[Rfam]
RNA sequence: UGAGGUCUGUUGCUUUGACAGUGUUGCACUACUGUUCCAUUCACUCAAGCAGUGCAAUGGUAUUGUCAUGGCAUUCGGCCUUCGC
Numbered sequence: 001u002g003a004g005g006u007c008u009g010u011u012g013c014u015u016u017g018a019c020a021g022u023g024u025u026g027c028a029c030u031a032c033u034g035u036u037c038c039a040u041u042c043a044c045u046c047a048a049g050c051a052g053u054g055c056a057a058u059g060g061u062a063u064u065g066u067c068a069u070g071g072c073a074u075u076c077g078g079c080c081u082u083c084g085c
Stems, first nucleotide, its partner, number of pairs: 002082003007077001009075001011073004016068004023058008034042001
mir-301 microRNA precursor family: an 85-nucleotide RNA sequence from Clupea harengus. A reference for the family is Houbaviy et al. (2003), "Embryonic stem cell-specific MicroRNAs", Dev Cell. Pairs were carried over by alignment from the consensus structure, which was predicted with WAR. The family has 17 seed sequences and 1,415 matches in Rfam 15.1. Taxonomically the source falls in Clupea (Eukaryota, Opisthokonta, Bilateria, Vertebrata).